[Rfam]
RNA: Group II catalytic intron D1-D4-1
Organism: Thermoanaerobacteraceae bacterium SP2
RNA sequence: CAACCCGGACUGAGAAGCCCGGCUGAACCGUCAGAAGUCAGCAGAGGCCAUAUUACUCGUAAAAAAAGAGAGGAAGGGC
Numbered sequence: 001c002a003a004c005c006c007g008g009a010c011u012g013a014g015a016a017g018c019c020c021g022g023c024u025g026a027a028c029c030g031u032c033a034g035a036a037g038u039c040a041g042c043a044g045a046g047g048c049c050a051u052a053u054u055a056c057u058c059g060u061a062a063a064a065a066a067a068g069a070g071a072g073g074a075a076g077g078g079c
Stems, first nucleotide, its partner, number of pairs: 001025002005022004010017002038045002047079003056072003